A member of the RNA family "Histone 3' UTR stem-loop" from Nothobranchius furzeri, 46 nucleotides long. The base pairs follow the family's consensus structure, which is taken from published work. A reference for the family is DeJong et al. (2002), "NMR structure and dynamics of the RNA-binding site for the histone mRNA stem-loop binding protein", RNA.
RNA sequence: ACAACGGCUUUUUUAAGAGCCACCUAACAGACUCAAAAGCAAAACA
Numbered sequence: 001a002c003a004a005c006g007g008c009u010u011u012u013u014u015a016a017g018a019g020c021c022a023c024c025u026a027a028c029a030g031a032c033u034c035a036a037a038a039g040c041a042a043a044a045c046a
Base pairs, nucleotide, nucleotide: 006021007020008019009018010017011016
About the family: The mRNAs of metazoan histone genes lack a poly-A tail. 3' end processing occurs at a site between a highly conserved stem-loop (modelled by this family) and a purine rich region around 20 nts downstream (the histone downstream element, or HDE). The stem-loop is bound by a 31 kDa stem-loop binding protein (SLBP - also termed the histone hairpin binding protein, or HBP).